[Rfam]
RNA: c-di-GMP-I riboswitch aptamer
Organism: Rhodocyclus tenuis
RNA sequence: GUCCGUCUUUGGCAAACCCGCGCGAAAGCCGGGGACGCAAAGCCACCGGGCUACUGACAGGUUCACAUCGUCAAAGCUAGCGGGGUUGCCGGG
Numbered sequence: 001g002u003c004c005g006u007c008u009u010u011g012g013c014a015a016a017c018c019c020g021c022g023c024g025a026a027a028g029c030c031g032g033g034g035a036c037g038c039a040a041a042g043c044c045a046c047c048g049g050g051c052u053a054c055u056g057a058c059a060g061g062u063u064c065a066c067a068u069c070g071u072c073a074a075a076g077c078u079a080g081c082g083g084g085g086u087u088g089c090c091g092g093g
Base pairs, nucleotide, nucleotide: 012038013037017033018032019031020030022029023028041087042086043085044084046083047082048081049078050077051076056072057071058070